[Rfam]
A member of the RNA family "UnaL2 LINE 3' element" from Coregonus sp. 'balchen', 54 nucleotides long. Rfam classes the family as a cis-regulatory element. Pairs were carried over by alignment from the consensus structure, which is taken from published work. The source organism's lineage runs through Eukaryota, Chordata, Actinopteri, Salmonidae and Coregonus. From the family's description: The eel long interspersed element (LINE) UnaL2 and its partner short interspersed element (SINE) share a conserved 3' tail containing a stem-loop that is critical for their retrotransposition. Presumably, the first step of retrotransposition is the recognition of their 3' tails by UnaL2-encoded reverse transcriptase. The solution structure of a 17-nucleotide RNA derived from the 3' tail of UnaL2 was determined by NMR.

RNA sequence: UGCACGCGUGCCUGUAAAUCGCUUUGGAUAAAAACGUCUGCUAAAUGGCGUAAA
Numbered sequence: 001u002g003c004a005c006g007c008g009u010g011c012c013u014g015u016a017a018a019u020c021g022c023u024u025u026g027g028a029u030a031a032a033a034a035c036g037u038c039u040g041c042u043a044a045a046u047g048g049c050g051u052a053a054a
Stems, first nucleotide, its partner, number of pairs: 013043001014041003020036002023033003